Source information: Shown here is a 99-nucleotide RNA sequence from Anaerocolumna chitinilytica, a member of the family "Guanidine-I riboswitch aptamer".
[Rfam]
RNA sequence: GCAGAAGUUUUAUAGGGUUCCGCAAUAUUCGUGUAUUGGUCAGGUCCAAGAUAAAACGCGCAGUUUAUGCGUUCACGGAAGGAUAAAAGCCUGGGAGAU
Numbered sequence: 001g002c003a004g005a006a007g008u009u010u011u012a013u014a015g016g017g018u019u020c021c022g023c024a025a026u027a028u029u030c031g032u033g034u035a036u037u038g039g040u041c042a043g044g045u046c047c048a049a050g051a052u053a054a055a056a057c058g059c060g061c062a063g064u065u066u067a068u069g070c071g072u073u074c075a076c077g078g079a080a081g082g083a084u085a086a087a088a089g090c091c092u093g094g095g096a097g098a099u
Stems, first nucleotide, its partner, number of pairs: 007057006015047002020044002022041001023038006058072005074094001076097001080092003
Dot-bracket structure: ......((((((..((...(((((((((....))))))..).)).))....))))))(((((.....))))).(.[...(((.......))).)..]..